[Rfam]
RNA sequence: CACGUUCAUCCUUAACAGGACGGAAGUAGGCUUAUGCUGAAGGAACGCAUU
Numbered sequence: 001c002a003c004g005u006u007c008a009u010c011c012u013u014a015a016c017a018g019g020a021c022g023g024a025a026g027u028a029g030g031c032u033u034a035u036g037c038u039g040a041a042g043g044a045a046c047g048c049a050u051u
Base pairs, nucleotide, nucleotide: 003047004046005045006044007043009020010019011018012017023048029038030037031036